[Rfam]
RNA sequence: CCGCCAUCAUCACCAUACGGCAUAACCUUUCAGGUUCUUGCUGGAAGGUUUAGUAUCGCCUUCCAGUGGAGCAUUAAGCGUGACCCCCGGAAGGCGACUUCCGGGGGUUUUUCGUU
Numbered sequence: 001c002c003g004c005c006a007u008c009a010u011c012a013c014c015a016u017a018c019g020g021c022a023u024a025a026c027c028u029u030u031c032a033g034g035u036u037c038u039u040g041c042u043g044g045a046a047g048g049u050u051u052a053g054u055a056u057c058g059c060c061u062u063c064c065a066g067u068g069g070a071g072c073a074u075u076a077a078g079c080g081u082g083a084c085c086c087c088c089g090g091a092a093g094g095c096g097a098c099u100u101c102c103g104g105g106g107g108u109u110u111u112u113c114g115u116u
Stems, first nucleotide, its partner, number of pairs: 008040002012035003020031001041066008078113001080111001082109012
The family of this 116-nucleotide RNA sequence from Saliniradius amylolyticus is "Histidine operon leader". The base pairs follow the family's consensus structure, which is taken from published work. Rfam's curators write: At least 6 amino acid operons are known to be regulated by attenuation. In each a leader sequence of 150-200 bp is found upstream of the first gene in the operon. Rfam classes the family as a cis-regulatory leader. The organism belongs to Saliniradius, within Bacteria.